[Rfam]
RNA sequence: AUAUUUACCUGGCAGGGGAGACACCAUGAUCAGGCAGGUGGUUUUCCCAGGGCGAGGCUCAUCCUUGCACUCUGGGUGUGCUGACCUCUCUGAUUUCCCCAAAUGCGGGAAGCUUAACUGCAUAAUUUGUGGUAGUGAGGGACUGCGUUCUCAUUCUAAUU
Numbered sequence: 001a002u003a004u005u006u007a008c009c010u011g012g013c014a015g016g017g018g019a020g021a022c023a024c025c026a027u028g029a030u031c032a033g034g035c036a037g038g039u040g041g042u043u044u045u046c047c048c049a050g051g052g053c054g055a056g057g058c059u060c061a062u063c064c065u066u067g068c069a070c071u072c073u074g075g076g077u078g079u080g081c082u083g084a085c086c087u088c089u090c091u092g093a094u095u096u097c098c099c100c101a102a103a104u105g106c107g108g109g110a111a112g113c114u115u116a117a118c119u120g121c122a123u124a125a126u127u128u129g130u131g132g133u134a135g136u137g138a139g140g141g142a143c144u145g146c147g148u149u150c151u152c153a154u155u156c157u158a159a160u161u
Stems, first nucleotide, its partner, number of pairs: 012121004016048006023042005049089004054085001056082003060078005091116003094112003098108002137160001140157003144153002
A member of the RNA family "U1 spliceosomal RNA" from Apteryx australis, 161 nucleotides long.
The family is grouped with related families in Rfam's "U1 clan".
Taxonomically the source falls in Apteryx (Eukaryota, Craniata, Archosauria, Apterygiformes).
Rfam 15.1 lists 40,184 matches to the family in 1,499 species.
Rfam classes the family as a spliceosomal small nuclear RNA.